[Rfam]
RNA sequence: CUAGCAGUGGCAAAGUGCUCAUAGUGCAGGUAGUUACUCCCAGAUCUACUGUAAUGUGGGCACUUCCAGUGCUGCUGG
Numbered sequence: 001c002u003a004g005c006a007g008u009g010g011c012a013a014a015g016u017g018c019u020c021a022u023a024g025u026g027c028a029g030g031u032a033g034u035u036a037c038u039c040c041c042a043g044a045u046c047u048a049c050u051g052u053a054a055u056g057u058g059g060g061c062a063c064u065u066c067c068a069g070u071g072c073u074g075c076u077g078g
Stems, first nucleotide, its partner, number of pairs: 004075004009070001013065011025053003029050005
A member of the RNA family "mir-17 microRNA precursor family" from Varanus komodoensis, 78 nucleotides long.
Rfam 15.1 lists 4,687 matches to the family in 648 species.
Pairs were carried over by alignment from the consensus structure, which was predicted with RNAalifold.
A search with the family's covariance model found it, with a score of 64 bits.
On this family, see Lagos-Quintana et al., Science 2001: "Identification of novel genes coding for small expressed RNAs".
The source organism's lineage runs through Eukaryota, Metazoa, Craniata, Paleoanguimorpha and Varanus.
This family represents the microRNA (miRNA) precursor mir-17, family, which includes mir-20, mir-91, and mir-103. miRNAs are transcribed as ~70nt precursors (modelled here) and subsequently processed by the Dicer enzyme to give a ~22nt product. In this case the mature sequence comes from the 3' arm of the precursor.